[Rfam]
RNA: int-alpA RNA
RNA sequence: UCCCCGGCUAGGCAUGGCGUCAUGAACCAUGCCGAAAAGGCGGAACCCUUGCCGCCCUGCCGGGGAGCUAUGCAUGUUUGA
Dot-bracket structure: ((((((((..(((((((.........))))))).....(((((....[..[)))))..))))))))..........]..].